[Rfam]
RNA sequence: CUGCUUGUGCUAAAGUGCUUACAGUGCAGGUAGUGGUGAAUCCAAACCUACUGCAGUGGGAGCACUUCUUUCACACGCGG
Numbered sequence: 001c002u003g004c005u006u007g008u009g010c011u012a013a014a015g016u017g018c019u020u021a022c023a024g025u026g027c028a029g030g031u032a033g034u035g036g037u038g039a040a041u042c043c044a045a046a047c048c049u050a051c052u053g054c055a056g057u058g059g060g061a062g063c064a065c066u067u068c069u070u071u072c073a074c075a076c077g078c079g080g
Base pairs, nucleotide, nucleotide: 004077006075007074009072013067014066015065016064017063018062019061020060022058023057025055026054027053029052030051031050032049033048